[Rfam]
RNA sequence: AAUAACCCUGGUGAAAGCGUUUAAUCUUAAAAAGGAGAUGACAAAGUUGGGUACCAUCGUCUGUCAGGACUGCCAGCGAGUCAUUGAACAUUUUGAUACCCAUAAAGUGACGGUUUUGUAUGGAAAAGGAUGCACCUGUCAACAGCAAAAAGAAGAUAGAAAGAAAUGAAUAUAGAAAUGCGCAGAUCCCCUUAGAAUGCUGGUUCUGCGCAUUUUUCA
Numbered sequence: 001a002a003u004a005a006c007c008c009u010g011g012u013g014a015a016a017g018c019g020u021u022u023a024a025u026c027u028u029a030a031a032a033a034g035g036a037g038a039u040g041a042c043a044a045a046g047u048u049g050g051g052u053a054c055c056a057u058c059g060u061c062u063g064u065c066a067g068g069a070c071u072g073c074c075a076g077c078g079a080g081u082c083a084u085u086g087a088a089c090a091u092u093u094u095g096a097u098a099c100c101c102a103u104a105a106a107g108u109g110a111c112g113g114u115u116u117u118g119u120a121u122g123g124a125a126a127a128g129g130a131u132g133c134a135c136c137u138g139u140c141a142a143c144a145g146c147a148a149a150a151a152g153a154a155g156a157u158a159g160a161a162a163g164a165a166a167u168g169a170a171u172a173u174a175g176a177a178a179u180g181c182g183c184a185g186a187u188c189c190c191c192u193u194a195g196a197a198u199g200c201u202g203g204u205u206c207u208g209c210g211c212a213u214u215u216u217u218c219a
Base pairs, nucleotide, nucleotide: 017108018107020106021105022104023103027096028095029094030093031092032091034089048083049082050081052079055076060075131147132146133145174217175216176215177214178213179212180211181210182209183208184207185206186205
SR1 sRNA: a 219-nucleotide sequence from Melghiribacillus thermohalophilus.
The source organism's lineage runs through Bacteria, Bacillota, Caryophanales, Bacillaceae and Melghiribacillus.
It scores 58 bits against the family's covariance model.